[Rfam]
About this RNA: The record is a 36-nucleotide RNA sequence, which matches "DUF805b RNA" in Rfam. Rfam's curators put it in the seed alignment. Rfam classes the family as a cis-regulatory element. The family's consensus secondary structure is taken from published work.
RNA sequence: AAGGCGCUAUCUGAAAAGCCUGUAAUAGAGUAGGAG
Numbered sequence: 001a002a003g004g005c006g007c008u009a010u011c012u013g014a015a016a017a018g019c020c021u022g023u024a025a026u027a028g029a030g031u032a033g034g035a036g
Stems, first nucleotide, its partner, number of pairs: 002021004010035003